RNA sequence: CGGCUGUAGCUAAAUUAACUCAAAUGGCUGAGAGGUUUACUGGCCGGUGGUUGUGUUUCCAGUCGACUAAUCUGCUUACCGAACCUCUUACACUU
Numbered sequence: 001c002g003g004c005u006g007u008a009g010c011u012a013a014a015u016u017a018a019c020u021c022a023a024a025u026g027g028c029u030g031a032g033a034g035g036u037u038u039a040c041u042g043g044c045c046g047g048u049g050g051u052u053g054u055g056u057u058u059c060c061a062g063u064c065g066a067c068u069a070a071u072c073u074g075c076u077u078a079c080c081g082a083a084c085c086u087c088u089u090a091c092a093c094u095u
Base pairs, nucleotide, nucleotide: 030089031088032087033086034085035084036083037082042076043075044074046072047071048070050067051066052065053064

A member of the RNA family "Small nucleolar RNA snoR109" from Citrus unshiu, 95 nucleotides long. NCBI's taxonomy places the organism under Eukaryota, Streptophytina, eudicotyledons, Aurantioideae, Citrus. The match comes from Rfam's covariance-model search (81 bits). Rfam links the family to the GO terms RNA processing and nucleolus.